[Rfam]
RNA sequence: GAACCAAUGACUUGUAAUGUGCACAUAAAUUGAUUUGGGUCUCUAGGCCUGCCCUUUCUGAUGCCAUUUGGCUUUGAUUUAGGGGCAUGGUUCUACAACAAAACG
Numbered sequence: 001g002a003a004c005c006a007a008u009g010a011c012u013u014g015u016a017a018u019g020u021g022c023a024c025a026u027a028a029a030u031u032g033a034u035u036u037g038g039g040u041c042u043c044u045a046g047g048c049c050u051g052c053c054c055u056u057u058c059u060g061a062u063g064c065c066a067u068u069u070g071g072c073u074u075u076g077a078u079u080u081a082g083g084g085g086c087a088u089g090g091u092u093c094u095a096c097a098a099c100a101a102a103a104c105g
Stems, first nucleotide, its partner, number of pairs: 009022001012019001037088001039086003047078001049076001051072003

Source information:
Small nucleolar RNA snoR100: a 105-nucleotide RNA sequence from Rhododendron williamsianum. For this family Rfam cites "Experimental RNomics: identification of 140 candidates for small non-messenger RNAs in the plant Arabidopsis thaliana" (Marker et al., Curr Biol, 2002). It is annotated as an H/ACA-box small nucleolar RNA. Gene Ontology terms of the family: RNA processing and nucleolus.